[Rfam]
RNA sequence: AUCUGAAAAAGGCAAGCCCGCGCGAAAGCCGGGUACGCAAAGUUACCGGUCUAAUCCGUGCUCGCACGGGAUGACAGCGGGACCGCCAGU
Dot-bracket structure: ...........((...((((.((....))))))...))...(((.((((((....((((......))))...)))..)))))).......